[Rfam]
RNA sequence: CGAGUCGGCCGGGCGGCCGCGGCGCGUGGGACGGCCAGUCACUGGAAACGCCACGCGCCGAGGAAAGUCCGGACUCCACAGAGCAGGGUGGUUGUCAACGGCAACCCGGGGCGACCCGCGGGACAGUGCCACAGAGAACAGACCGCCGGCCGCACGGCCGGUAAGGGUGAAACGGUGCGGUAAGAGCGCACCAGCGAUGCGGGUGACCGCGUCGGCUCGGUAAACCCCACCCGGAGCAAGGCCGAAGCACGGACCGCUUGCGGUGCGUGUGCGCGGACGUGAUGAGGGCUGCUCGCCCCAGUCCGCGGGUGGGCCGCUCGAGGUACCCGGCGACGGUGUGCCCAGAUGGAUGGUCGCCACCGACCUCACGGUCGGGACAGGAUCCGGCUUACACGCCGACUCGUUCG
Dot-bracket structure: (((((((((.((((((((.(((((((((.......................)))))))))....[[[.[[[[[((((...[[[[.((((((((((.....)))))(((((....)))).)((...(((((............(((((((((....)))))))..)).......((((((.......)))))).(((((((((....)))))))).)..)))..)))))))))))))...((((......(((((...............................((((.]]]]))))..)))))......))))......(....(((....)))....)..........)))))))........................]]]]]]]].)..)))))))))....
Numbered sequence: 001c002g003a004g005u006c007g008g009c010c011g012g013g014c015g016g017c018c019g020c021g022g023c024g025c026g027u028g029g030g031a032c033g034g035c036c037a038g039u040c041a042c043u044g045g046a047a048a049c050g051c052c053a054c055g056c057g058c059c060g061a062g063g064a065a066a067g068u069c070c071g072g073a074c075u076c077c078a079c080a081g082a083g084c085a086g087g088g089u090g091g092u093u094g095u096c097a098a099c100g101g102c103a104a105c106c107c108g109g110g111g112c113g114a115c116c117c118g119c120g121g122g123a124c125a126g127u128g129c130c131a132c133a134g135a136g137a138a139c140a141g142a143c144c145g146c147c148g149g150c151c152g153c154a155c156g157g158c159c160g161g162u163a164a165g166g167g168u169g170a171a172a173c174g175g176u177g178c179g180g181u182a183a184g185a186g187c188g189c190a191c192c193a194g195c196g197a198u199g200c201g202g203g204u205g206a207c208c209g210c211g212u213c214g215g216c217u218c219g220g221u222a223a224a225c226c227c228c229a230c231c232c233g234g235a236g237c238a239a240g241g242c243c244g245a246a247g248c249a250c251g252g253a254c255c256g257c258u259u260g261c262g263g264u265g266c267g268u269g270u271g272c273g274c275g276g277a278c279g280u281g282a283u284g285a286g287g288g289c290u291g292c293u294c295g296c297c298c299c300a301g302u303c304c305g306c307g308g309g310u311g312g313g314c315c316g317c318u319c320g321a322g323g324u325a326c327c328c329g330g331c332g333a334c335g336g337u338g339u340g341c342c343c344a345g346a347u348g349g350a351u352g353g354u355c356g357c358c359a360c361c362g363a364c365c366u367c368a369c370g371g372u373c374g375g376g377a378c379a380g381g382a383u384c385c386g387g388c389u390u391a392c393a394c395g396c397c398g399a400c401u402c403g404u405u406c407g
Stems, first nucleotide, its partner, number of pairs: 001403009011392001012358007020060009065390003069387005074236004081294004086232005091105005106120001107118004121227002126225002128221003143166002145162007174192006194216001195214008240315004250305005286298004322341001327336003

The record is a 407-nucleotide sequence from Gordonia polyisoprenivorans, which matches "Bacterial RNase P class A" in Rfam. Rfam describes the family as follows. Ribonuclease P (RNase P) is a ubiquitous endoribonuclease, found in archaea, bacteria and eukarya as well as chloroplasts and mitochondria. The base pairs follow the family's consensus structure, which is taken from published work. Lineage of the source: Bacteria > Bacillati > Mycobacteriales > Gordonia > Gordonia polyisoprenivorans.